This 110-nucleotide RNA sequence from Gadus morhua belongs to the Rfam family "Small nucleolar RNA SNORD46". Gene Ontology terms of the family: nucleolus and RNA processing. Rfam describes the family as follows. U40 is a C/D box small nucleolar RNA, also known as snoZ153 in plants. The human sequence has also been annotated in the sequence databases as U46. U40 is encoded in intron 2 of the ribosomal protein S8 gene in human, and is hypothesised to guide methylation of 2'-O-ribose residues on 28S ribosomal RNA. This family represents vertebrate U40.
RNA sequence: UGCGUGGUUGAUGAAACCCUAACCUUAGGUUUGUUUUCAUUUGGCCGUUUUGGUUCAAAUCUUUUAACUUGCCGAUGCCAGGACUCUUGUCAUAGUUACUCUGACACGCU
Numbered sequence: 001u002g003c004g005u006g007g008u009u010g011a012u013g014a015a016a017c018c019c020u021a022a023c024c025u026u027a028g029g030u031u032u033g034u035u036u037u038c039a040u041u042u043g044g045c046c047g048u049u050u051u052g053g054u055u056c057a058a059a060u061c062u063u064u065u066a067a068c069u070u071g072c073c074g075a076u077g078c079c080a081g082g083a084c085u086c087u088u089g090u091c092a093u094a095g096u097u098a099c100u101c102u103g104a105c106a107c108g109c110u
Base pairs, nucleotide, nucleotide: 002109003108004107005106006105